Shown here is a 163-nucleotide part of an RNA from Phytophthora infestans, a member of the family "Microsporidia small subunit ribosomal RNA". The organism belongs to Phytophthora infestans, within Eukaryota. For this family Rfam cites "Crystal structure of the ribosome at 5.5 A resolution" (Yusupov et al., Science, 2001). Its Rfam clan is "SSU clan". The base pairs follow the family's consensus structure, which is taken from published work.
Nucleotides: 163
Base pairs, nucleotide, nucleotide: 001127004123005122007120009117010116011115012114013113015111016110020107021106022105023104024103025102027100030097031096032095035092036091037090038089132155133154134153135152136151137150138149139148140147141146
Number, partner (000 for none) and nucleotide at each position: 001127g002000c003000c004123c005122g006000u007120c008000g009117c010116a011115c012114c013113u014000a015111c016110c017000g018000a019000u020107u021106g022105a023104a024103u025102g026000a027100c028000u029000c030097g031096g032095u033000g034000a035092a036091a037090a038089a039000u040000u041000g042000g043000g044000a045000c046000c047000g048000u049000g050000a051000g052000u053000c054000u055000g056000u057000u058000u059000g060000c061000u062000u063000u064000a065000u066000u067000g068000c069000g070000a071000g072000u073000g074000g075000a076000u077000u078000g079000a080000u081000g082000g083000g084000a085000a086000c087000u088000u089038u090037u091036u092035u093000a094000a095032a096031c097030c098000u099000c100027g101000c102025c103024a104023u105022u106021u107020a108000g109000a110016g111015g112000a113013a114012g115011g116010u117009g118000a119000a120007g121000u122005c123004g124000u125000a126000a127001c128000a129000a130000g131000g132155u133154u134153u135152c136151c137150g138149u139148a140147g141146g142000u143000g144000a145000a146141c147140c148139u149138g150137c151136g152135g153134a154133a155132g156000g157000a158000u159000c160000a161000u162000u163000a